[Rfam]
RNA sequence: CGGCGGGACACCCCUCCCCAACGAGGGGCUUUUGCCUGAAAGGGUAACGAUA
Numbered sequence: 001c002g003g004c005g006g007g008a009c010a011c012c013c014c015u016c017c018c019c020a021a022c023g024a025g026g027g028g029c030u031u032u033u034g035c036c037u038g039a040a041a042g043g044g045u046a047a048c049g050a051u052a
Stems, first nucleotide, its partner, number of pairs: 011028006032047006
RNA: serC leader
Organism: Paracoccus aurantiacus